[Rfam]
RNA sequence: CUGGAAUGAUGCGAUUUAGCCAAAUCAGACAUUAAUGUGCUCCAUGAGGCAACCGAUAAUAUUAUCUGUUUUGAUCAUGUUGAAGCGCAUUUCUCUGAUGAUUAACAUGGAGAUUAGGUGUUUAUAUUCCUGACCAGA
Numbered sequence: 001c002u003g004g005a006a007u008g009a010u011g012c013g014a015u016u017u018a019g020c021c022a023a024a025u026c027a028g029a030c031a032u033u034a035a036u037g038u039g040c041u042c043c044a045u046g047a048g049g050c051a052a053c054c055g056a057u058a059a060u061a062u063u064a065u066c067u068g069u070u071u072u073g074a075u076c077a078u079g080u081u082g083a084a085g086c087g088c089a090u091u092u093c094u095c096u097g098a099u100g101a102u103u104a105a106c107a108u109g110g111a112g113a114u115u116a117g118g119u120g121u122u123u124a125u126a127u128u129c130c131u132g133a134c135c136a137g138a
Base pairs, nucleotide, nucleotide: 001137002136003135004134
Rfam assigns this 138-nucleotide RNA from Trifolium pratense to the family "small nucleolar RNA snoR127". It is annotated as a C/D-box small nucleolar RNA. Lineage of the source: Eukaryota > Viridiplantae > Gunneridae > Papilionoideae > Trifolium. Pairs were carried over by alignment from the consensus structure, which was predicted with RNAalifold.